The record is an 87-nucleotide RNA sequence from Fusibacter sp. A1, which matches "c-di-GMP-I riboswitch aptamer" in Rfam. Rfam describes the family as follows. GEMM was predicted in a large-scale screen for bacterial structured RNA regulatory elements. Genes associated with GEMM are involved in a diverse array of functions, including chemotaxis regulation, signal transduction, secretion and chitin. A search with the family's covariance model found it, with a score of 75 bits.
RNA sequence: UUCUCGACAAGGCAAACCAGUUGAAAGAUUGGGGCGCAAAACUAGAGGGCCUAAGUCACUUGUGUGAUAUGGCAGCCAGUCGCCGAA
Numbered sequence: 001u002u003c004u005c006g007a008c009a010a011g012g013c014a015a016a017c018c019a020g021u022u023g024a025a026a027g028a029u030u031g032g033g034g035c036g037c038a039a040a041a042c043u044a045g046a047g048g049g050c051c052u053a054a055g056u057c058a059c060u061u062g063u064g065u066g067a068u069a070u071g072g073c074a075g076c077c078a079g080u081c082g083c084c085g086a087a
Base pairs, nucleotide, nucleotide: 012037013036017032018031019030020029021028022027041080042079043078047077048076049073050072051071056067057066058065059064